Background
Shown here is a 128-nucleotide RNA from Myotis myotis, a member of the family "Small Cajal body specific RNA 24". Pairs were carried over by alignment from the consensus structure, which was predicted with RNAfold. It scores 132 bits against the family's covariance model. Rfam describes the family as follows. scaRNAs are a specific class of small nuclear RNAs which localise to the Cajal bodies and guide the modification of RNA polymerase II transcribed spliceosomal RNAs U1, U2, U4, U5 and U12. ACA12 belongs to the H/ACA box class of guide RNAs as it has the predicted hairpin-hinge-hairpin-tail structure,the conserved H/ACA-box motifs and is found associated with GAR1. Its family is annotated with RNA processing, nucleolus and Cajal body in the Gene Ontology. The family is grouped with related families in Rfam's "SCARNA3 clan". The literature on the family includes a 2002 paper in EMBO J by Darzacq et al., "Cajal body-specific small nuclear RNAs: a novel class of 2'-O-methylation and pseudouridylation guide RNAs". The family has 23 seed sequences and 689 matches in Rfam 15.1.
RNA sequence: UGGGCAUUUACUUUAUCCAGUUUCUUCUUAAGGUGAAGAAAACUCUUUGUAAGUGUCCUAGAGAAAUACAGUACCUUUCUGUCCACACUUUGCAAGUAAAAGGGUGGAUCGUUCCACUACUGACAUAU
Numbered sequence: 001u002g003g004g005c006a007u008u009u010a011c012u013u014u015a016u017c018c019a020g021u022u023u024c025u026u027c028u029u030a031a032g033g034u035g036a037a038g039a040a041a042a043c044u045c046u047u048u049g050u051a052a053g054u055g056u057c058c059u060a061g062a063g064a065a066a067u068a069c070a071g072u073a074c075c076u077u078u079c080u081g082u083c084c085a086c087a088c089u090u091u092g093c094a095a096g097u098a099a100a101a102g103g104g105u106g107g108a109u110c111g112u113u114c115c116a117c118u119a120c121u122g123a124c125a126u127a128u
Base pairs, nucleotide, nucleotide: 002058003057004056005055006054007053008052009051010050011049019044020043021042022041023039024038025037026036027035069122070121071120072119073118088102089101090100091099